[Rfam]
RNA sequence: AUAUGUGCUGUGAUGAAGCUAUUGUGGACUAGAGUUUCUGAUCUGGGGUUCAACUCAGAAGUUGAAGACAAACCCUUGGCUGUCUGAGCACCCUU
Numbered sequence: 001a002u003a004u005g006u007g008c009u010g011u012g013a014u015g016a017a018g019c020u021a022u023u024g025u026g027g028a029c030u031a032g033a034g035u036u037u038c039u040g041a042u043c044u045g046g047g048g049u050u051c052a053a054c055u056c057a058g059a060a061g062u063u064g065a066a067g068a069c070a071a072a073c074c075c076u077u078g079g080c081u082g083u084c085u086g087a088g089c090a091c092c093c094u095u
Base pairs, nucleotide, nucleotide: 001095005091006090007089008088035067036066037065038064042060043058044057045056046055047054
RNA: Small nucleolar RNA Z157/R69/R10